[Rfam]
RNA sequence: GAAGCGUCAACCUCGCACCGCGUCAGCGGGUCAGACGAGGAGCGUCCGCUGGCAACGGCGGACUGCG
Numbered sequence: 001g002a003a004g005c006g007u008c009a010a011c012c013u014c015g016c017a018c019c020g021c022g023u024c025a026g027c028g029g030g031u032c033a034g035a036c037g038a039g040g041a042g043c044g045u046c047c048g049c050u051g052g053c054a055a056c057g058g059c060g061g062a063c064u065g066c067g
Base pairs, nucleotide, nucleotide: 011040012039013038014037015036018029019028020027021026044063045062046061047060048059049058050057051056
Description
The family of this 67-nucleotide RNA sequence from Micromonospora craterilacus is "Transposase-2 RNA". The family's RNA type in Rfam is small RNA. The source organism's lineage runs through Bacteria, Bacillati, Actinomycetes, Micromonosporaceae and Micromonospora.